[Rfam]
RNA: Group II catalytic intron D1-D4-3
Organism: Massilia eurypsychrophila
RNA sequence: AUGAGGGUGACCGAGUGUGGGAAGUAAGCGUGGAGCGUAAAUCACGAGCCGAUGUACAAGAACUGCAUAGAAGGCGCUACCAAUCAGGGCGAGCGGGCGCAAAACCGCGAAGCUCUUGUGGUCAAGGAGAAGUGGCGUAGAUGCGGCGGUUGUGUGAUGAAGGAGUGCGGC
Numbered sequence: 001a002u003g004a005g006g007g008u009g010a011c012c013g014a015g016u017g018u019g020g021g022a023a024g025u026a027a028g029c030g031u032g033g034a035g036c037g038u039a040a041a042u043c044a045c046g047a048g049c050c051g052a053u054g055u056a057c058a059a060g061a062a063c064u065g066c067a068u069a070g071a072a073g074g075c076g077c078u079a080c081c082a083a084u085c086a087g088g089g090c091g092a093g094c095g096g097g098c099g100c101a102a103a104a105c106c107g108c109g110a111a112g113c114u115c116u117u118g119u120g121g122u123c124a125a126g127g128a129g130a131a132g133u134g135g136c137g138u139a140g141a142u143g144c145g146g147c148g149g150u151u152g153u154g155u156g157a158u159g160a161a162g163g164a165g166u167g168c169g170g171c
Stems, first nucleotide, its partner, number of pairs: 001016002005012002028171002036163001041158006047151005063146006074138003078134003087115004093108004